[Rfam]
Shown here is a 75-nucleotide sequence from Scyliorhinus torazame, a member of the family "Mammalian CPEB3 ribozyme".
The organism belongs to Scyliorhinus, within Eukaryota.
Pairs were carried over by alignment from the consensus structure, which is taken from published work.
RNA sequence: CCAGGAUUUGACGGCCGAGGGAGAUGCGUUCAUAACGCGGCCACACAGGUUGAGUGUCAACCUGCAAAUUCUUCC
Dot-bracket structure: ............[[[[..((((((.(((.......)))]]]]...(((((((.....))))))).....))))))
Numbered sequence: 001c002c003a004g005g006a007u008u009u010g011a012c013g014g015c016c017g018a019g020g021g022a023g024a025u026g027c028g029u030u031c032a033u034a035a036c037g038c039g040g041c042c043a044c045a046c047a048g049g050u051u052g053a054g055u056g057u058c059a060a061c062c063u064g065c066a067a068a069u070u071c072u073u074c075c
Stems, first nucleotide, its partner, number of pairs: 013042004019075006026038003046064007